[Rfam]
RNA sequence: GCCUAUUUCGCGUUUGUGCGUGAAUCUAACCAAUCAAUCUUUAAUCCAAUCGCAUCAGCUUCAACCAGAUCGUCAAAUCGAUGUACAAAUCAGUCUGUUGGCAGGAUCUGUUCGUUAGAUUCACGCACAAACUCGUAAUACGUCU
Numbered sequence: 001g002c003c004u005a006u007u008u009c010g011c012g013u014u015u016g017u018g019c020g021u022g023a024a025u026c027u028a029a030c031c032a033a034u035c036a037a038u039c040u041u042u043a044a045u046c047c048a049a050u051c052g053c054a055u056c057a058g059c060u061u062c063a064a065c066c067a068g069a070u071c072g073u074c075a076a077a078u079c080g081a082u083g084u085a086c087a088a089a090u091c092a093g094u095c096u097g098u099u100g101g102c103a104g105g106a107u108c109u110g111u112u113c114g115u116u117a118g119a120u121u122c123a124c125g126c127a128c129a130a131a132c133u134c135g136u137a138a139u140a141c142g143u144c145u
Stems, first nucleotide, its partner, number of pairs: 001143002005139003012132015028116003045103001
RNA: MIR403 microRNA precursor family
Organism: Mikania micrantha